The family of this 74-nucleotide RNA from Myotis lucifugus is "mir-9229 microRNA precursor family". Pairs were carried over by alignment from the consensus structure, which was predicted with RNAalifold.
[Rfam]
RNA sequence: GAGACACCCUUAUGGGGCAAGACUUGCUUCAGUGGGGAUUUGGUGCUCACUGAGUCUGCCCCCUGAGUGUCCCU
Number, nucleotide and partner (000 for none) at each position: 001g000002a074003g073004a000005c000006a070007c069008c000009c067010u066011u065012a064013u000014g062015g061016g060017g059018c058019a057020a000021g056022a055023c054024u000025u000026g000027c000028u000029u053030c052031a051032g050033u049034g048035g047036g046037g044038a000039u000040u000041u000042g000043g000044u037045g000046c036047u035048c034049a033050c032051u031052g030053a029054g023055u022056c021057u019058g018059c017060c016061c015062c014063c000064u012065g011066a010067g009068u000069g007070u006071c000072c000073c003074u002